[Rfam]
Background: A member of the RNA family "DUF3800-III RNA", 107 nucleotides long.
RNA sequence: AGAAUGGUAUUGUAAAGCCUGAUGACCUCGGACACUCGUAGAGUGUCAUAGCUGCUGCUGAAAUGUAGCGGGUGAAAAUGAAAUCAGGGCUCAGGGUGAGCCAUUCA
Numbered sequence: 001a002g003a004a005u006g007g008u009a010u011u012g013u014a015a016a017g018c019c020u021g022a023u024g025a026c027c028u029c030g031g032a033c034a035c036u037c038g039u040a041g042a043g044u045g046u047c048a049u050a051g052c053u054g055c056u057g058c059u060g061a062a063a064u065g066u067a068g069c070g071g072g073u074g075a076a077a078a079u080g081a082a083a084u085c086a087g088g089g090c091u092c093a094g095g096g097u098g099a100g101c102c103a104u105u106c107a
Base pairs, nucleotide, nucleotide: 002106003105004104005103006102007101010099011098012097018095019094020093021092022091026089027088028087033045034044035043036042037041052071053070054069055068056067057066058065
Rfam's curators put it in the seed alignment.